[Rfam]
Nucleotides: 132
Base pairs, nucleotide, nucleotide: 006123012117013116014115015114016113019055020054021053025049027047028046029045033042034041035040057071058070059069060068061067074099075098076097077096078095079094080093081092082091084089100110101109
Number, partner (000 for none) and nucleotide at each position: 001000g002000g003000a004000u005000a006123u007000a008000a009000a010000a011000c012117a013116c014115a015114c016113u017000a018000a019055g020054c021053c022000u023000c024000u025049g026000g027047a028046c029045c030000u031000a032000a033042g034041u035040c036000g037000a038000a039000a040035g041034a042033u043000a044000c045029g046028g047027u048000g049025c050000u051000u052000u053021g054020g055019c056000c057071g058070u059069g060068a061067c062000c063000u064000u065000g066000a067061g068060u069059c070058a071057c072000c073000a074099g075098g076097g077096u078095g079094c080093a081092g082091u083000a084089a085000g086000a087000a088000a089084u090000g091082a092081c093080u094079g095078c096077a097076u098075c099074u100110c101109c102000c103000g104000u105000a106000u107000u108000u109101g110100g111000a112000a113016g114015g115014u116013g117012u118000a119000c120000a121000u122000g123006g124000c125000u126000a127000c128000c129000c130000a131000a132000c
Shown here is a 132-nucleotide RNA sequence from Buttiauxella agrestis, a member of the family "Molybdenum/Tungsten riboswitch aptamer (Moco RNA motif)". Pairs were carried over by alignment from the consensus structure, which is taken from published work. A reference for the family is Weinberg et al. (2007), "Identification of 22 candidate structured RNAs in bacteria using the CMfinder comparative genomics pipeline", Nucleic Acids Res. The source organism's lineage runs through Bacteria, Pseudomonadati, Pseudomonadota, Enterobacteriaceae and Buttiauxella agrestis.